[Rfam]
This 139-nucleotide RNA sequence from Octodon degus belongs to the Rfam family "Small nucleolar RNA SNORA8". The organism belongs to Octodon, within Eukaryota. Rfam describes the family as follows. ACA8 is a member of the H/ACA class of snoRNA that guide the sites of modification of uridines to pseudouridines. The family's consensus secondary structure was predicted with RNAfold.
RNA sequence: UCCACUGUAUGAUGUUUACACUCAACAGUUUGUUCCUGCUGGUUCAUUCAAAGGAUAGUGCAAAAGAAAUGUAGUAUCUGGCAUUGGUGGUUUUCUUGGCUUUGUGUGUGUUAUACCUGGUAUUUCUAUUGAUACACUA
Numbered sequence: 001u002c003c004a005c006u007g008u009a010u011g012a013u014g015u016u017u018a019c020a021c022u023c024a025a026c027a028g029u030u031u032g033u034u035c036c037u038g039c040u041g042g043u044u045c046a047u048u049c050a051a052a053g054g055a056u057a058g059u060g061c062a063a064a065a066g067a068a069a070u071g072u073a074g075u076a077u078c079u080g081g082c083a084u085u086g087g088u089g090g091u092u093u094u095c096u097u098g099g100c101u102u103u104g105u106g107u108g109u110g111u112u113a114u115a116c117c118u119g120g121u122a123u124u125u126c127u128a129u130u131g132a133u134a135c136a137c138u139a
Stems, first nucleotide, its partner, number of pairs: 003060005015054003018047001023042001024040001026038003065127006072119003081107004